[Rfam]
RNA sequence: CUCUUAUGAAGAGCUGGUGGAGGGACGAUCCCAAUGAAACCCGGCAACCUGUUUUGGCUUUUGGGUCAAUUCAAGGUGCUAAUUCUCACAAGGUUACCUUGGUAGAUAAGAG
Numbered sequence: 001c002u003c004u005u006a007u008g009a010a011g012a013g014c015u016g017g018u019g020g021a022g023g024g025a026c027g028a029u030c031c032c033a034a035u036g037a038a039a040c041c042c043g044g045c046a047a048c049c050u051g052u053u054u055u056g057g058c059u060u061u062u063g064g065g066u067c068a069a070u071u072c073a074a075g076g077u078g079c080u081a082a083u084u085c086u087c088a089c090a091a092g093g094u095u096a097c098c099u100u101g102g103u104a105g106a107u108a109a110g111a112g
Stems, first nucleotide, its partner, number of pairs: 001112007013042001016041003022032003027087002043080004048076002051071001053069001084104001089101005
RNA: SAM riboswitch aptamer (S box leader)
Organism: Alkalicoccobacillus porphyridii